Alphaproteobacteria transfer-messenger RNA: a 367-nucleotide sequence from Alsobacter metallidurans. It is annotated as a non-coding RNA gene. It scores 295 bits against the family's covariance model. The source organism's lineage runs through Bacteria, Pseudomonadota, Alphaproteobacteria, Alsobacteraceae and Alsobacter.

RNA sequence: CCCCUUCCGUUCGCGGAGCCGAGGCCCUAUAUUCACUCCUGUCGCCCGCAAGGGCGUCUAUGGCGAUAAACGGUCAUCAGAAUAAGCCUUACGGACCCGGGGGCGGUACCCGGCGCCUCCACCAGAACCCAGUCUCGGCUCUCCGGAGCUGGGCUCCGGCGGGGGCGAAACAGGAUCGACGUGGGUGUAAAAGGUGCUCUUUCGCUCGGCAUGGUACCGCCGUUAUCGGGCUAAACUUAUAGUUGCCAACGACAACUAUGCUCAGGUUGCGGUGGCCGCGUAAGCGGUUUCUGAAACCUAAACAAAGCCCUUGCGGGUAGCACCGUAAGGCGGGGCUCGGAGGCGCCUGGCAACAGAAGCCUCCACU
Number, nucleotide and partner (000 for none) at each position: 001c000002c000003c000004c000005u000006u000007c000008c000009g000010u000011u000012c000013g000014c000015g000016g000017a000018g000019c000020c000021g000022a000023g000024g000025c000026c000027c000028u000029a000030u000031a000032u000033u000034c000035a000036c000037u000038c000039c000040u000041g058042u000043c056044g055045c054046c053047c052048g000049c000050a000051a000052g047053g046054g045055c044056g043057u000058c041059u000060a000061u000062g206063g205064c204065g203066a202067u000068a000069a000070a000071c000072g199073g198074u000075c196076a195077u194078c193079a000080g000081a000082a000083u000084a000085a000086g000087c185088c184089u183090u000091a182092c181093g180094g000095a000096c000097c113098c112099g111100g110101g109102g000103g000104c000105g000106g000107u000108a000109c101110c100111c099112g098113g097114c167115g166116c165117c164118u163119c162120c161121a000122c000123c000124a000125g000126a000127a000128c000129c000130c000131a000132g000133u000134c000135u000136c000137g000138g000139c000140u000141c000142u000143c000144c000145g000146g000147a000148g000149c000150u000151g000152g000153g000154c000155u000156c000157c000158g000159g000160c000161g120162g119163g118164g117165g116166c115167g114168a000169a000170a000171c000172a000173g000174g000175a000176u000177c000178g000179a000180c093181g092182u091183g089184g088185g087186u000187g000188u000189a000190a000191a000192a000193g078194g077195u076196g075197c000198u073199c072200u000201u000202u066203c065204g064205c063206u062207c222208g221209g220210c219211a000212u233213g232214g231215u000216a000217c229218c228219g210220c209221c208222g207223u000224u000225a000226u000227c000228g218229g217230g000231c214232u213233a212234a000235a000236c000237u000238u000239a000240u000241a000242g000243u000244u000245g000246c000247c000248a000249a000250c000251g000252a000253c000254a000255a000256c000257u000258a000259u000260g000261c000262u000263c000264a000265g000266g000267u000268u000269g000270c000271g000272g000273u000274g000275g000276c000277c000278g000279c000280g000281u000282a000283a000284g000285c000286g000287g000288u000289u000290u000291c000292u000293g000294a000295a000296a000297c000298c000299u000300a000301a000302a000303c000304a000305a000306a000307g000308c000309c000310c000311u000312u000313g000314c000315g000316g000317g000318u000319a000320g000321c000322a000323c000324c000325g000326u000327a000328a000329g000330g000331c000332g000333g348334g347335g346336c345337u000338c000339g364340g363341a362342g361343g360344c359345g336346c335347c334348u333349g000350g000351c000352a000353a000354c000355a000356g000357a000358a000359g344360c343361c342362u341363c340364c339365a000366c000367u000